[Rfam]
Notes
This 77-nucleotide sequence belongs to the Rfam family "L13-Bacteroidia ribosomal protein leader". Rfam classes the family as a cis-regulatory leader. The base pairs follow the family's consensus structure, which is taken from published work.
Nucleotides: 077
Base pairs, nucleotide, nucleotide: 001022002021003020004019005018006017035071036070037069038068039067041065042064043063044062045061047060048059049058050057
Number, partner (000 for none) and nucleotide at each position: 001022g002021g003020g004019a005018g006017g007000c008000g009000c010000a011000g012000a013000u014000g015000a016000u017006c018005c019004u020003c021002c022001c023000a024000a025000a026000g027000u028000g029000g030000g031000c032000g033000u034000g035071u036070a037069g038068a039067u040000a041065g042064c043063g044062c045061g046000u047060u048059g049058u050057u051000u052000u053000g054000g055000c056000c057050g058049a059048c060047a061045c062044g063043u064042g065041u066000g067039g068038u069037c070036u071035g072000u073000g074000a075000a076000u077000c